[Rfam]
RNA: Small nucleolar RNA SNORD69
RNA sequence: CGCGCAAAGCAUAUGAUGAGAAAGCACUGAAACUGACUCUGUAUGGAGUACAUUCAGUCCAACGCUGAGCUUUGUGUC
Numbered sequence: 001c002g003c004g005c006a007a008a009g010c011a012u013a014u015g016a017u018g019a020g021a022a023a024g025c026a027c028u029g030a031a032a033c034u035g036a037c038u039c040u041g042u043a044u045g046g047a048g049u050a051c052a053u054u055c056a057g058u059c060c061a062a063c064g065c066u067g068a069g070c071u072u073u074g075u076g077u078c
Stems, first nucleotide, its partner, number of pairs: 002077009